RNA sequence: GAAAGCAGGGGAGGUGAUCGCAAUUGAACUUCAGCAAAAAGCUGAAGAAUUCUAUUGAGGAAAGUCCGGGCUCCUAUUUGGCCAGGCUUGCUGGGUAAUUCCCAGUGCGGGUGACCGUGAGGAUAGUGCCACAGAAACACACCGCCUAACGCUUAAUGGGGAUAUCCCAACAAGCGCGGCAAGGGUGCAAAGGUGCGGUAAGAGCGCACCAGCAGCAUCGAGAGGUGCUGGCUAGGUAAACCCCGGCCAGGAGCAAGGCGAGGGGCACUGGAUGGCCAUAGACCUUGUCCCUGUAGAGAGCCGCUUGAGGCUAGCGGUAACGUUAGUCCCAGAUAGAUGAUUACCCAUUCGCUUUCUAAAGAAAGAGGAAUGAACAGAACCCGGCUUAUGACCUGCUUUCACUU
Numbered sequence: 001g002a003a004a005g006c007a008g009g010g011g012a013g014g015u016g017a018u019c020g021c022a023a024u025u026g027a028a029c030u031u032c033a034g035c036a037a038a039a040a041g042c043u044g045a046a047g048a049a050u051u052c053u054a055u056u057g058a059g060g061a062a063a064g065u066c067c068g069g070g071c072u073c074c075u076a077u078u079u080g081g082c083c084a085g086g087c088u089u090g091c092u093g094g095g096u097a098a099u100u101c102c103c104a105g106u107g108c109g110g111g112u113g114a115c116c117g118u119g120a121g122g123a124u125a126g127u128g129c130c131a132c133a134g135a136a137a138c139a140c141a142c143c144g145c146c147u148a149a150c151g152c153u154u155a156a157u158g159g160g161g162a163u164a165u166c167c168c169a170a171c172a173a174g175c176g177c178g179g180c181a182a183g184g185g186u187g188c189a190a191a192g193g194u195g196c197g198g199u200a201a202g203a204g205c206g207c208a209c210c211a212g213c214a215g216c217a218u219c220g221a222g223a224g225g226u227g228c229u230g231g232c233u234a235g236g237u238a239a240a241c242c243c244c245g246g247c248c249a250g251g252a253g254c255a256a257g258g259c260g261a262g263g264g265g266c267a268c269u270g271g272a273u274g275g276c277c278a279u280a281g282a283c284c285u286u287g288u289c290c291c292u293g294u295a296g297a298g299a300g301c302c303g304c305u306u307g308a309g310g311c312u313a314g315c316g317g318u319a320a321c322g323u324u325a326g327u328c329c330c331a332g333a334u335a336g337a338u339g340a341u342u343a344c345c346c347a348u349u350c351g352c353u354u355u356c357u358a359a360a361g362a363a364a365g366a367g368g369a370a371u372g373a374a375c376a377g378a379a380c381c382c383g384g385c386u387u388a389u390g391a392c393c394u395g396c397u398u399u400c401a402c403u404u
Stems, first nucleotide, its partner, number of pairs: 001400009011389001013345007021057004026052003062387003066384005071253004085248003089245002091105005106120001107118004121243002126241002128237003142184002144180003150176005192210006212232001213230007257302003261292006272286001274284002309328008
Dot-bracket structure: (((((((((.(.(((((((.((((.(((.....................))).))))....[[[.[[[[[((((..........(((.(((((((.....)))))(((((....)))).)((...(((((...........(((((...(((((.................))))).)))..)).......((((((.......)))))).((((((((....))))))).)..)))..))))))))).))))...(((.((((((.....(.((.......)).))))))).......)))......((((((((....))))))))..........)))))))..................................]]]]]]]].)..)))))))))....

About this RNA
The record is a 404-nucleotide RNA from Prochlorococcus marinus, which matches "Bacterial RNase P class A" in Rfam. The family's RNA type in Rfam is ribozyme.